The family of this 87-nucleotide RNA sequence from Candidatus Accumulibacter aalborgensis is "c-di-GMP-I riboswitch aptamer". The family's consensus secondary structure is taken from published work.
RNA sequence: CGAGAUAAAUGGCAAACGGGGUGUAAGCCCCGGACGCAAAGCUGCAGGCCCUAACCGGAAGUCCAGGAGGGUGGCUGGGUUGCCUCG
Numbered sequence: 001c002g003a004g005a006u007a008a009a010u011g012g013c014a015a016a017c018g019g020g021g022u023g024u025a026a027g028c029c030c031c032g033g034a035c036g037c038a039a040a041g042c043u044g045c046a047g048g049c050c051c052u053a054a055c056c057g058g059a060a061g062u063c064c065a066g067g068a069g070g071g072u073g074g075c076u077g078g079g080u081u082g083c084c085u086c087g
Base pairs, nucleotide, nucleotide: 012037013036017032018031019030020029021028022027040081041080042079043078045077046076047075048072049071050070055066057064058063